The family of this 100-nucleotide RNA from Phtheirospermum japonicum is "mir-395 microRNA precursor family". mir-395 was identified in both Arabidopsis thaliana and Oryza sativa computationally and was later experimentally verified. mir-395 is thought to target mRNAs coding for ATP sulphurylases. The mature sequence is excised from the 3' arm of the hairpin. A reference for the family is Jones-Rhoades and Bartel (2004), "Computational Identification of Plant MicroRNAs and Their Targets, Including a Stress-Induced miRNA", Mol Cell. It scores 58 bits against the family's covariance model.
RNA sequence: GUUUCAACCAGAGUACCCUCAAUCACUUCAUUGAGUUUUGUGUUUUCUUAAUUACGACGAAUACACUCACUGAAGUGUUUGAGGGAACUCUUGUGGCGAC
Numbered sequence: 001g002u003u004u005c006a007a008c009c010a011g012a013g014u015a016c017c018c019u020c021a022a023u024c025a026c027u028u029c030a031u032u033g034a035g036u037u038u039u040g041u042g043u044u045u046u047c048u049u050a051a052u053u054a055c056g057a058c059g060a061a062u063a064c065a066c067u068c069a070c071u072g073a074a075g076u077g078u079u080u081g082a083g084g085g086a087a088c089u090c091u092u093g094u095g096g097c098g099a100c
Stems, first nucleotide, its partner, number of pairs: 005096001007094002011090004016085007024077007032069004